Plant signal recognition particle RNA: a 291-nucleotide RNA sequence from Marchantia polymorpha. Lineage of the source: Eukaryota > Viridiplantae > Embryophyta > Marchantiophyta > Marchantia polymorpha. The literature on the family includes a 2002 paper in Curr Opin Struct Biol by Wild et al., "Towards the structure of the mammalian signal recognition particle". The family's consensus secondary structure is taken from published work.
Nucleotides: 291
Base pairs, nucleotide, nucleotide: 002039003038004023005022006021007020008019009018028037029036030035043291044290045289046288047287049285050284051283054280057276058275064271065270066269067268068267071264072263073262075257076256077255078254079253080252082250086244092242093241094240095239096238098236099235100231101230103229104228105227106226107225109222110221111220112219113218114217115216116215117214120161121160124158125157126156127155128154129153130152131151132150133149134148135147136145137144169212170211171210172209173208180203181202182201187196188195189194
Number, partner (000 for none) and nucleotide at each position: 001000u002039c003038u004023g005022g006021g007020c008019a009018g010000c011000g012000u013000a014000g015000c016000g017000a018009c019008u020007g021006u022005c023004u024000g025000u026000a027000a028037c029036c030035c031000g032000a033000g034000c035030g036029g037028g038003a039002g040000u041000a042000a043291g044290a045289g046288a047287g048000a049285u050284g051283g052000g053000a054280g055000c056000u057276g058275c059000g060000g061000c062000u063000c064271u065270c066269g067268c068267a069000g070000a071264g072263g073262a074000c075257c076256g077255c078254u079253g080252g081000g082250a083000u084000c085000a086244u087000g088000u089000c090000g091000a092242a093241g094240g095239c096238a097000c098236g099235u100231c101230c102000u103229u104228u105227c106226g107225a108000a109222g110221c111220g112219u113218g114217g115216a116215g117214u118000c119000u120161c121160u122000g123000a124158u125157c126156u127155g128154g129153g130152c131151u132150c133149c134148u135147c136145g137144g138000c139000g140000g141000a142000a143000c144137c145136c146000a147135g148134g149133g150132g151131a152130g153129u154128c155127u156126g157125g158124g159000g160121a161120g162000a163000u164000g165000g166000u167000g168000c169212g170211g171210a172209g173208g174000g175000c176000c177000c178000a179000g180203c181202g182201u183000g184000a185000g186000g187196c188195g189194g190000g191000c192000g193000a194189u195188c196187g197000a198000g199000c200000a201182g202181c203180g204000a205000g206000c207000a208173c209172u210171u211170c212169c213000c214117g215116c216115u217114c218113u219112g220111c221110g222109c223000a224000g225107u226106c227105g228104a229103g230101g231100g232000a233000c234000c235099g236098c237000a238096u239095g240094c241093u242092u243000g244086a245000a246000u247000g248000c249000u250082u251000g252080c253079c254078a255077g256076c257075g258000a259000u260000c261000a262073u263072c264071c265000g266000a267068u268067g269066c270065g271064a272000g273000c274000a275058g276057c277000c278000u279000c280054c281000a282000g283051c284050c285049a286000c287047c288046u289045c290044u291043c